Background:
The family of this 99-nucleotide RNA sequence from Desemzia incerta is "TPP riboswitch aptamer (THI element)". It scores 66 bits against the family's covariance model. NCBI's taxonomy places the organism under Bacteria, Bacillati, Lactobacillales, Carnobacteriaceae, Desemzia. The family's consensus secondary structure is taken from published work. Rfam 15.1 lists 16,130 matches to the family in 8,693 species.

[Rfam]
Nucleotides: 099
Stems, first nucleotide, its partner, number of pairs: 008085003011051004016045001017028004035044003057080004061074004
Number, partner (000 for none) and nucleotide at each position: 001000a002000a003000u004000g005000u006000u007000u008085u009084g010083c011051a012050g013049g014048g015000g016045g017028a018027c019026a020025c021000a022000g023000u024000u025020g026019u027018g028017u029000u030000g031000a032000g033000a034000a035044g036043g037042u038000u039000a040000a041000a042037a043036c044035c045016u046000g047000a048014c049013c050012c051011u052000u053000u054000g055000a056000a057080c058079c059078u060077g061074u062073u063072a064071g065000u066000u067000a068000a069000c070000a071064c072063u073062a074061a075000c076000g077060u078059a079058g080057g081000g082000a083010g084009c085008a086000c087000u088000g089000u090000u091000u092000a093000c094000a095000u096000a097000u098000g099000a